The record is a 100-nucleotide RNA sequence from Aestuariispira insulae, which matches "Pyrrolysine insertion sequence mttB" in Rfam.
The match comes from Rfam's covariance-model search (40 bits).
Rfam classes the family as a cis-regulatory element.
Rfam links the family to the GO term pyrrolysine incorporation.
Pairs were carried over by alignment from the consensus structure, which was predicted with CMfinder.
[Rfam]
RNA sequence: CUGAAUGCCUCCAAGACCCCGGAUGCGCAGGCGGCCUAUGAAGCGGCGAACACAUUGCAGACCGCAGCGCUGGGCGGCGUGAACUUCAUGCUGCACACAG
Numbered sequence: 001c002u003g004a005a006u007g008c009c010u011c012c013a014a015g016a017c018c019c020c021g022g023a024u025g026c027g028c029a030g031g032c033g034g035c036c037u038a039u040g041a042a043g044c045g046g047c048g049a050a051c052a053c054a055u056u057g058c059a060g061a062c063c064g065c066a067g068c069g070c071u072g073g074g075c076g077g078c079g080u081g082a083a084c085u086u087c088a089u090g091c092u093g094c095a096c097a098c099a100g
Stems, first nucleotide, its partner, number of pairs: 003012001025032001033062001035060001077098001079096002